Description: The record is a 123-nucleotide RNA from Pteroceltis tatarinowii, which matches "Plastid-psbA-1 3UTR RNA" in Rfam. It is annotated as a cis-regulatory element.
[Rfam]
RNA sequence: UGGAAGUUCCGUCUACAAAUGGAUAAAACUUCGGUAUUAAUGUAUACGAGUUAUUGAAAAUAAAGAUAAAGGAGCAAUAAAAACUUCUUGAUAUAAGAAGAAGUUUGGUAUUGCUCCUUUAUU
Dot-bracket structure: .......(((((......)))))............................................((((((((((((..((.(((((........))))).))...))))))))))))...

About this RNA:
The family's consensus secondary structure was predicted with LocARNA. The family is grouped with related families in Rfam's "Plastid-psbA 3UTR RNA clan". Plastid psbA-1 is a non-coding RNA (ncRNA) present in plastids. It was identified in inverted repeat sequences in the 3 prime untranslate region (3UTR) of photosystem II quinone-binding protein (psbA).